[Rfam]
RNA sequence: UGCUUUAUACAUAGGUAUAAAGGAAGAGCAUUGUUGUCAAGCUUUCCAGCAGAAUAUCUUUCAAGAUUUCUCGC
Numbered sequence: 001u002g003c004u005u006u007a008u009a010c011a012u013a014g015g016u017a018u019a020a021a022g023g024a025a026g027a028g029c030a031u032u033g034u035u036g037u038c039a040a041g042c043u044u045u046c047c048a049g050c051a052g053a054a055u056a057u058c059u060u061u062c063a064a065g066a067u068u069u070c071u072c073g074c
Stems, first nucleotide, its partner, number of pairs: 003022008053069002056067004
Dot-bracket structure: ..((((((((....))))))))..............................((.((((....)))))).....

RT-6 RNA: a 74-nucleotide sequence from Clostridiales bacterium NK3B98. Lineage of the source: Bacteria > Bacillati > Bacillota > Clostridia > Eubacteriales. The family's RNA type in Rfam is small RNA. Rfam's curators put it in the seed alignment.